About this RNA:
Alphacoronavirus 3'UTR: a 275-nucleotide RNA from Rhinolophus bat coronavirus HKU32. The base pairs follow the family's consensus structure. The family's RNA type in Rfam is cis-regulatory element. A search with the family's covariance model found it, with a score of 175 bits. The family is grouped with related families in Rfam's "Coronavirus 3' UTR". The 3' UTR of alphacoronaviruses consists of two small hairpins (PK-SL2) which can form an alternate conformation (PK-SL1) where the loop region of the second hairpin interacts with the stem of the first hairpin. PK-SL2 has been confirmed in HCoV-229E and HCoV-NL63 by in vitro structure probing experiments. Downstream of this pseudoknot lies the hypervariable region (HVR), which is supported by many covarying basepairs in alphacoronaviruses. Gene Ontology term of the family: viral RNA genome replication. Taxonomically the source falls in Decacovirus (Viruses, Riboviria, Cornidovirineae, Alphacoronavirus).

[Rfam]
RNA sequence: UUGUUCUUUACCUUUGUCUCAGACGCUAACCUGGCUUCUUUCUUUCCUGCUAUGCGCACCCAAUCUUAAUGGUUGUUUGGUGCUACUCUUAUACAGAAUGGUAAGCCUGUUUAUAAGCUAGUAUAAGUAGAGUUUAUAAAUGUUGCUGCACUUAGACCAACGUACAUGUUACAAGACACUCCUAGAGUCAGAGUAAUUAAAGAUCCGCUUAGACGAGCCAACAAUGGAAGAGCUGUCAUAGGACCUUGUAUACAUGUAUCAGUAGUUGCUAGUAG
Numbered sequence: 001u002u003g004u005u006c007u008u009u010a011c012c013u014u015u016g017u018c019u020c021a022g023a024c025g026c027u028a029a030c031c032u033g034g035c036u037u038c039u040u041u042c043u044u045u046c047c048u049g050c051u052a053u054g055c056g057c058a059c060c061c062a063a064u065c066u067u068a069a070u071g072g073u074u075g076u077u078u079g080g081u082g083c084u085a086c087u088c089u090u091a092u093a094c095a096g097a098a099u100g101g102u103a104a105g106c107c108u109g110u111u112u113a114u115a116a117g118c119u120a121g122u123a124u125a126a127g128u129a130g131a132g133u134u135u136a137u138a139a140a141u142g143u144u145g146c147u148g149c150a151c152u153u154a155g156a157c158c159a160a161c162g163u164a165c166a167u168g169u170u171a172c173a174a175g176a177c178a179c180u181c182c183u184a185g186a187g188u189c190a191g192a193g194u195a196a197u198u199a200a201a202g203a204u205c206c207g208c209u210u211a212g213a214c215g216a217g218c219c220a221a222c223a224a225u226g227g228a229a230g231a232g233c234u235g236u237c238a239u240a241g242g243a244c245c246u247u248g249u250a251u252a253c254a255u256g257u258a259u260c261a262g263u264a265g266u267u268g269c270u271a272g273u274a275g
Stems, first nucleotide, its partner, number of pairs: 088105005109141011155267003162259004172248004180243005187237001189235003208217002218227002